mir-10 microRNA precursor family: a 71-nucleotide sequence from Scyliorhinus torazame.
Gene Ontology terms of the family: miRNA-mediated post-transcriptional gene silencing and RISC complex.
The literature on the family includes a 2001 paper in Science by Lee and Ambros, "An extensive class of small RNAs in Caenorhabditis elegans".
[Rfam]
Nucleotides: 071
Base pairs, nucleotide, nucleotide: 002069004067005066006065010061011060015056016055017054018053021050022049024047025046026045027044028043029042
Number, partner (000 for none) and nucleotide at each position: 001000u002069g003000c004067c005066a006065c007000u008000a009000a010061c011060c012000c013000g014000u015056a016055g017054a018053u019000c020000c021050g022049a023000a024047c025046u026045u027044g028043u029042g030000u031000u032000u033000u034000a035000c036000a037000u038000a039000u040000c041000c042029c043028a044027c045026a046025a047024g048000c049022u050021c051000a052000u053018g054017u055016c056015u057000a058000u059000a060011g061010g062000u063000c064000u065006g066005u067004g068000u069002c070000u071000a